[Rfam]
RNA sequence: GCGGUUAAAAAGCUCGUAGUUGGAUUUCAGUUCUGGACUGACGGUUACCGCCCGGUGAUCACUGUCACGCUCCGAACACUUUGACCAUCCGCUGGCCCACGGGGUGCCCUUUUCCCAAUUUCCCCUGGCCCGGAGAGUUUACUUUGAAAAAAUUAGAGUUCUCAAAGCAGGCUACACUGACGGCCUGAAUGCCUAUGCAUGGAAUAAUGGAAUAGGACCUCGGUUCUAUUUUGUCGGUUUUCUGAACCCGAGGUAAUGACUAAUGGAACAGGCGGGGUCAUUCUAUUGACGCUAGAGGUAAAUUCUUGGACCGUCGCAAGACGAACUACUCGAAAUCAUUUGCCAAGGAUGUUUUCAUUAAUCAAGAACGAAAGUUAGAGGUUCGAAGCGAUCAGAUACCGCCCUAGUUCUAACCAUAAACGAUUCUGACCACAUCCGCCGGAGUUAUUCCCAUGACCGGCGGGGAGCUUCCGGGAAACCAAAGUCUUUGGGUUCCGGGGGAAGUAUGGUUGCAAAGCUGAAACUUAAAGGAAU
Numbered sequence: 001g002c003g004g005u006u007a008a009a010a011a012g013c014u015c016g017u018a019g020u021u022g023g024a025u026u027u028c029a030g031u032u033c034u035g036g037a038c039u040g041a042c043g044g045u046u047a048c049c050g051c052c053c054g055g056u057g058a059u060c061a062c063u064g065u066c067a068c069g070c071u072c073c074g075a076a077c078a079c080u081u082u083g084a085c086c087a088u089c090c091g092c093u094g095g096c097c098c099a100c101g102g103g104g105u106g107c108c109c110u111u112u113u114c115c116c117a118a119u120u121u122c123c124c125c126u127g128g129c130c131c132g133g134a135g136a137g138u139u140u141a142c143u144u145u146g147a148a149a150a151a152a153u154u155a156g157a158g159u160u161c162u163c164a165a166a167g168c169a170g171g172c173u174a175c176a177c178u179g180a181c182g183g184c185c186u187g188a189a190u191g192c193c194u195a196u197g198c199a200u201g202g203a204a205u206a207a208u209g210g211a212a213u214a215g216g217a218c219c220u221c222g223g224u225u226c227u228a229u230u231u232u233g234u235c236g237g238u239u240u241u242c243u244g245a246a247c248c249c250g251a252g253g254u255a256a257u258g259a260c261u262a263a264u265g266g267a268a269c270a271g272g273c274g275g276g277g278u279c280a281u282u283c284u285a286u287u288g289a290c291g292c293u294a295g296a297g298g299u300a301a302a303u304u305c306u307u308g309g310a311c312c313g314u315c316g317c318a319a320g321a322c323g324a325a326c327u328a329c330u331c332g333a334a335a336u337c338a339u340u341u342g343c344c345a346a347g348g349a350u351g352u353u354u355u356c357a358u359u360a361a362u363c364a365a366g367a368a369c370g371a372a373a374g375u376u377a378g379a380g381g382u383u384c385g386a387a388g389c390g391a392u393c394a395g396a397u398a399c400c401g402c403c404c405u406a407g408u409u410c411u412a413a414c415c416a417u418a419a420a421c422g423a424u425u426c427u428g429a430c431c432a433c434a435u436c437c438g439c440c441g442g443a444g445u446u447a448u449u450c451c452c453a454u455g456a457c458c459g460g461c462g463g464g465g466a467g468c469u470u471c472c473g474g475g476a477a478a479c480c481a482a483a484g485u486c487u488u489u490g491g492g493u494u495c496c497g498g499g500g501g502a503a504g505u506a507u508g509g510u511u512g513c514a515a516a517g518c519u520g521a522a523a524c525u526u527a528a529a530g531g532a533a534u
Stems, first nucleotide, its partner, number of pairs: 002497003010494001012369001014367002019362003265356004269351002273347001277344001279342002283323001286319002288315004295305003374414006384407001388403001389401002426492002428486003432469001435464007444457003473480002499526003508519004
RNA: Eukaryotic small subunit ribosomal RNA, nucleotides 622 to 1155